[Rfam]
This 103-nucleotide RNA sequence from Sporotomaculum syntrophicum belongs to the Rfam family "NiCo (Nickel/Cobalt) riboswitch aptamer". It scores 72 bits against the family's covariance model.
RNA sequence: ACAGUACAAACUGAGCAGGCGAGGGACCUUACUAAAGGUUCCUGGGGCUGGGCCGUAAACUUUCGGCAGCAAAUGGGGUAUUUAACACAUUUGUGGGACAGUA
Numbered sequence: 001a002c003a004g005u006a007c008a009a010a011c012u013g014a015g016c017a018g019g020c021g022a023g024g025g026a027c028c029u030u031a032c033u034a035a036a037g038g039u040u041c042c043u044g045g046g047g048c049u050g051g052g053c054c055g056u057a058a059a060c061u062u063u064c065g066g067c068a069g070c071a072a073a074u075g076g077g078g079u080a081u082u083u084a085a086c087a088c089a090u091u092u093g094u095g096g097g098a099c100a101g102u103a
Base pairs, nucleotide, nucleotide: 010102011101012100013099016097018049019048020047022043023042024041025040026039027038052067053066054065055064069094070093071092072091073090074089
Annotation: Its Rfam clan is "NiCo_riboswitches". Rfam links the family to the GO terms metal ion homeostasis and cobalt ion binding. Pairs were carried over by alignment from the consensus structure, which is taken from published work. Lineage of the source: Bacteria > Bacillati > Bacillota > Clostridia > Sporotomaculum.